[Rfam]
RNA sequence: CAUUGAGGUGAUGAUAUUAUUUUCCGAAUUGCAUUUGCAUUAUGUCCACUUAAAGAAAUAAACUACAAUUAUCUGAUUAAUG
Numbered sequence: 001c002a003u004u005g006a007g008g009u010g011a012u013g014a015u016a017u018u019a020u021u022u023u024c025c026g027a028a029u030u031g032c033a034u035u036u037g038c039a040u041u042a043u044g045u046c047c048a049c050u051u052a053a054a055g056a057a058a059u060a061a062a063c064u065a066c067a068a069u070u071a072u073c074u075g076a077u078u079a080a081u082g
Stems, first nucleotide, its partner, number of pairs: 001082006

Annotation
Small nucleolar RNA Z155: an 82-nucleotide sequence from Rhamnella rubrinervis. By type it is a C/D-box small nucleolar RNA. Lineage of the source: Eukaryota > Streptophytina > Rosales > Rhamnaceae > Rhamnella. Gene Ontology terms of the family: RNA processing and nucleolus.